[Rfam]
RNA sequence: UAUAUGAAAAGGCAAACUUGCUGAAAAGCAGGGACGCAAAGCUGAGGGCCUAAAGUUUUUUUAAAUUAUUGAACUACGGCAGCCUGGUUACCGCU
Number, nucleotide and partner (000 for none) at each position: 001u000002a000003u000004a000005u000006g000007a000008a000009a000010a000011g000012g037013c036014a000015a000016a000017c032018u031019u030020g029021c028022u027023g000024a000025a000026a000027a022028g021029c020030a019031g018032g017033g000034a000035c000036g013037c012038a000039a000040a089041g088042c087043u086044g000045a085046g084047g083048g080049c079050c078051u000052a000053a000054a000055g074056u073057u072058u071059u000060u000061u000062u000063a000064a000065a000066u000067u000068a000069u000070u000071g058072a057073a056074c055075u000076a000077c000078g050079g049080c048081a000082g000083c047084c046085u045086g043087g042088u041089u040090a000091c000092c000093g000094c000095u000
c-di-GMP-I riboswitch aptamer: a 95-nucleotide RNA sequence. Pairs were carried over by alignment from the consensus structure, which is taken from published work.